[Rfam]
RNA sequence: GGAAAUCCAUCGACGUAUUCAUCCGCACACGGCAGGAGCGGGGGACCCAGGCAAGCCGCCGGACCGAUGCCGCACCGCGUACGCCACCCGGCCGUACGCCGUACGCCGCACCGCACCGGCUCGGGGUGAAGCCGCGCCGUCCCCCGGCGCGGCCGGGCACCUCCCGCCCGAACCCGACAGCUCACCUCGCAGGCGUCAGGAGAGGACUU
Numbered sequence: 001g002g003a004a005a006u007c008c009a010u011c012g013a014c015g016u017a018u019u020c021a022u023c024c025g026c027a028c029a030c031g032g033c034a035g036g037a038g039c040g041g042g043g044g045a046c047c048c049a050g051g052c053a054a055g056c057c058g059c060c061g062g063a064c065c066g067a068u069g070c071c072g073c074a075c076c077g078c079g080u081a082c083g084c085c086a087c088c089c090g091g092c093c094g095u096a097c098g099c100c101g102u103a104c105g106c107c108g109c110a111c112c113g114c115a116c117c118g119g120c121u122c123g124g125g126g127u128g129a130a131g132c133c134g135c136g137c138c139g140u141c142c143c144c145c146g147g148c149g150c151g152g153c154c155g156g157g158c159a160c161c162u163c164c165c166g167c168c169c170g171a172a173c174c175c176g177a178c179a180g181c182u183c184a185c186c187u188c189g190c191a192g193g194c195g196u197c198a199g200g201a202g203a204g205g206a207c208u209u
Stems, first nucleotide, its partner, number of pairs: 006037003038190006048123001124175003132152006155169004
Source information
Shown here is a 209-nucleotide RNA from Streptomyces echinoruber, a member of the family "c-di-AMP riboswitch aptamer (ydaO/yuaA leader)". Lineage of the source: Bacteria > Actinomycetota > Actinomycetes > Kitasatosporales > Streptomyces.